Molybdenum/Tungsten riboswitch aptamer (Moco RNA motif): a 136-nucleotide sequence from Enterobacteriaceae bacterium strain FGI 57. It scores 91 bits against the family's covariance model. Its family is annotated with molybdenum ion binding, regulation of gene expression and tungstate binding in the Gene Ontology.

[Rfam]
RNA sequence: AAUGCUGAAAAACACUCUAGCCUCUGGGCCUAAGUCGAAAGAUAAGGCGCUUUGGCCGUGAUGUUUAACAUCACCAGGGCGAAGGAAGAAAUGACCUCGCCUCCCGUAUUUGGAAAGGUGUCUAUGGCUUCACAAC
Numbered sequence: 001a002a003u004g005c006u007g008a009a010a011a012a013c014a015c016u017c018u019a020g021c022c023u024c025u026g027g028g029c030c031u032a033a034g035u036c037g038a039a040a041g042a043u044a045a046g047g048c049g050c051u052u053u054g055g056c057c058g059u060g061a062u063g064u065u066u067a068a069c070a071u072c073a074c075c076a077g078g079g080c081g082a083a084g085g086a087a088g089a090a091a092u093g094a095c096c097u098c099g100c101c102u103c104c105c106g107u108a109u110u111u112g113g114a115a116a117g118g119u120g121u122c123u124a125u126g127g128c129u130u131c132a133c134a135a136c
Stems, first nucleotide, its partner, number of pairs: 004129001006127001012121004017117001020056003026050001028048003034043003058074005077102006084095001087092001103113002